[Rfam]
This 121-nucleotide RNA from Amylolactobacillus amylophilus belongs to the Rfam family "FMN riboswitch aptamer (RFN element)". The match comes from Rfam's covariance-model search (108 bits). The organism belongs to Amylolactobacillus amylophilus, within Bacteria.
RNA sequence: UGUUGUCUUCAGGGCAGGGUGCAAUUCCCGACCGGCGGUAAAGUCCGCGACCCAGGUAAAACUGGCUGAGUUGGUUAAUUUCCAACACCGAUAGUUAAAGUCUAGAUAAAAGAAGACAGGC
Number, nucleotide and partner (000 for none) at each position: 001u000002g000003u119004u118005g117006u116007c115008u114009u113010c112011a000012g000013g000014g000015c000016a000017g029018g028019g027020u000021g000022c000023a000024a000025u000026u000027c019028c018029c017030g000031a101032c100033c090034g089035g048036c047037g046038g045039u000040a000041a000042a000043g088044u087045c038046c037047g036048c035049g000050a000051c000052c065053c064054a000055g000056g000057u000058a000059a000060a000061a000062c000063u000064g053065g052066c000067u000068g000069a000070g086071u085072u084073g083074g082075u000076u000077a000078a000079u000080u000081u000082c074083c073084a072085a071086c070087a044088c043089c034090g033091a000092u104093a103094g102095u000096u000097a000098a000099a000100g032101u031102c094103u093104a092105g000106a000107u000108a000109a000110a000111a000112g010113a009114a008115g007116a006117c005118a004119g003120g000121c000